RNA sequence: UUCCUCCUUGUCUCGGGGAGCAUAACGUCCAAUGAACGUAUAGUGAGGACGUUGAUGCUGACACCCAGAUUAUACCAGGACCUAAUCGUCUUGGGAAAAACUCCCGCCCGAGGUGAUUGCUUUCGAACAGUGGCCACCUGGGCGGAAUUUUUGGAACG
Numbered sequence: 001u002u003c004c005u006c007c008u009u010g011u012c013u014c015g016g017g018g019a020g021c022a023u024a025a026c027g028u029c030c031a032a033u034g035a036a037c038g039u040a041u042a043g044u045g046a047g048g049a050c051g052u053u054g055a056u057g058c059u060g061a062c063a064c065c066c067a068g069a070u071u072a073u074a075c076c077a078g079g080a081c082c083u084a085a086u087c088g089u090c091u092u093g094g095g096a097a098a099a100a101c102u103c104c105c106g107c108c109c110g111a112g113g114u115g116a117u118u119g120c121u122u123u124c125g126a127a128c129a130g131u132g133g134c135c136a137c138c139u140g141g142g143c144g145g146a147a148u149u150u151u152u153g154g155a156a157c158g
Stems, first nucleotide, its partner, number of pairs: 005019005020058004024053007036044002104145006114136002117133004
Annotation: Shown here is a 158-nucleotide sequence from Culex quinquefasciatus, a member of the family "U4atac minor spliceosomal RNA". The base pairs follow the family's consensus structure, which is taken from published work. U4atac is an essential component of the minor U12-type spliceosome complex which is required for removal of the rarer class of eukaryotic introns (AT-AC, U12-type). The family's RNA type in Rfam is spliceosomal small nuclear RNA. Its Rfam clan is "U4 clan". NCBI's taxonomy places the organism under Eukaryota, Bilateria, Nematocera, Culex, Culex pipiens complex. It is one of the family's seed sequences.